The record is a 58-nucleotide RNA sequence from Monodelphis domestica, which matches "mir-7371 microRNA precursor family" in Rfam. The organism belongs to Monodelphis, within Eukaryota.
RNA sequence: AUUUGUACAAGCCGCUUUUUUUGUGUAGUCUAUCAAAUGAAGCGACUUGUGCAAAUGA
Numbered sequence: 001a002u003u004u005g006u007a008c009a010a011g012c013c014g015c016u017u018u019u020u021u022u023g024u025g026u027a028g029u030c031u032a033u034c035a036a037a038u039g040a041a042g043c044g045a046c047u048u049g050u051g052c053a054a055a056u057g058a
Stems, first nucleotide, its partner, number of pairs: 002055007010047002013044006020037004
Gene Ontology terms of the family: miRNA-mediated post-transcriptional gene silencing and RISC complex.